A member of the RNA family "Small nucleolar RNA SNORD107" from Oryctolagus cuniculus, 74 nucleotides long. It scores 84 bits against the family's covariance model. Lineage of the source: Eukaryota > Euteleostomi > Tetrapoda > Leporidae > Oryctolagus. On this family, see Runte et al., Hum Mol Genet 2001: "The IC-SNURF-SNRPN transcript serves as a host for multiple small nucleolar RNA species and as an antisense RNA for UBE3A".
[Rfam]
RNA sequence: GGUUCAUGAUGACAUAGGACCUUGUCUGAAUAAUAAUGAUUUCAAAUUUUGAGCUAAAGUGACUUUCUGAAAUC
Number, nucleotide and partner (000 for none) at each position: 001g074002g073003u072004u071005c000006a000007u000008g000009a000010u000011g000012a000013c000014a000015u000016a000017g000018g000019a000020c000021c000022u000023u000024g000025u000026c000027u000028g000029a000030a000031u000032a000033a000034u000035a000036a000037u000038g000039a000040u000041u000042u000043c000044a000045a000046a000047u000048u000049u000050u000051g000052a000053g000054c000055u000056a000057a000058a000059g000060u000061g000062a000063c000064u000065u000066u000067c000068u000069g000070a000071a004072a003073u002074c001